[Rfam]
RNA sequence: GUGACAGAAGAGAGUGAGCACAGAGGGUUCUACUUUCUUGAAUGCAUGGAAGAGAAGAGAAGCUCUGUGUGCUCACCCCUCUAUCUGUCAC
Numbered sequence: 001g002u003g004a005c006a007g008a009a010g011a012g013a014g015u016g017a018g019c020a021c022a023g024a025g026g027g028u029u030c031u032a033c034u035u036u037c038u039u040g041a042a043u044g045c046a047u048g049g050a051a052g053a054g055a056a057g058a059g060a061a062g063c064u065c066u067g068u069g070u071g072c073u074c075a076c077c078c079c080u081c082u083a084u085c086u087g088u089c090a091c
Base pairs, nucleotide, nucleotide: 001091002090003089004088005087006086007085008084010081011080012079014076015075016074017073018072019071020070021069024066025065